[Rfam]
RNA: DUF805 RNA
Nucleotides: 070
Base pairs, nucleotide, nucleotide: 006023007022008021009020037053038052039051044064045063
Number, partner (000 for none) and nucleotide at each position: 001000c002000a003000g004000u005000a006023g007022u008021g009020g010000a011000a012000u013000c014000c015000a016000g017000c018000a019000a020009c021008c022007a023006c024000u025000a026000a027000u028000a029000a030000a031000a032000a033000a034000c035000g036000g037053g038052g039051c040000g041000a042000a043000a044064c045063c046000g047000a048000a049000a050000a051039g052038c053037c054000a055000c056000a057000c058000g059000a060000g061000u062000a063045g064044g065000a066000g067000a068000u069000u070000a